[Rfam]
RNA sequence: AUGGAAGUGAUGAUCCUUUCCCCAAAUGAUCGAAGCUGAUUAAACUGUGCGAUUUUUCUCUUCUGAGAAUCCAAGCCAAAUGUUCUGAUCCAU
Numbered sequence: 001a002u003g004g005a006a007g008u009g010a011u012g013a014u015c016c017u018u019u020c021c022c023c024a025a026a027u028g029a030u031c032g033a034a035g036c037u038g039a040u041u042a043a044a045c046u047g048u049g050c051g052a053u054u055u056u057u058c059u060c061u062u063c064u065g066a067g068a069a070u071c072c073a074a075g076c077c078a079a080a081u082g083u084u085c086u087g088a089u090c091c092a093u
Stems, first nucleotide, its partner, number of pairs: 001093005
This 93-nucleotide RNA sequence from Carpinus fangiana belongs to the Rfam family "Small nucleolar RNA Z103". The literature on the family includes a 2003 paper in Nucleic Acids Res by Chen et al., "The high diversity of snoRNAs in plants: identification and comparative study of 120 snoRNA genes from Oryza sativa". Gene Ontology terms of the family: nucleolus and RNA processing. By type it is a C/D-box small nucleolar RNA. The source organism's lineage runs through Eukaryota, Magnoliopsida, Pentapetalae, Fagales and Carpinus. The family has 12 seed sequences and 2,844 matches in Rfam 15.1. It scores 93 bits against the family's covariance model.